[Rfam]
RNA sequence: UGAAGACACCCAUUCCACGACGGAUCGUCCGGCACGUACCUGCCGGUGGAAGGACACACGA
Numbered sequence: 001u002g003a004a005g006a007c008a009c010c011c012a013u014u015c016c017a018c019g020a021c022g023g024a025u026c027g028u029c030c031g032g033c034a035c036g037u038a039c040c041u042g043c044c045g046g047u048g049g050a051a052g053g054a055c056a057c058a059c060g061a
Stems, first nucleotide, its partner, number of pairs: 011053001013051005029046006
A member of the RNA family "msiK RNA" from Kineococcus aurantiacus, 61 nucleotides long. Rfam classes the family as a cis-regulatory element. The family's consensus secondary structure is taken from published work. It scores 58 bits against the family's covariance model.